[Rfam]
Shown here is a 99-nucleotide RNA, a member of the family "Bacterial small signal recognition particle RNA".
Pairs were carried over by alignment from the consensus structure, which is taken from published work.
A search with the family's covariance model found it, with a score of 65 bits.

RNA sequence: ACUUGGUUUCCACGCAAUGAUAGAUUGUGAAACCCGCCAGAUCCGGAAGGAAGCAACGGUAGCUAUUGAUUUCAUGUGCCGUGAUCAAAGCUAAGUUAG
Dot-bracket structure: ...(((((..(((((.((((.((((.((.....(((.....(((....))).....)))..)).)))..).)))))...)))).....)))))......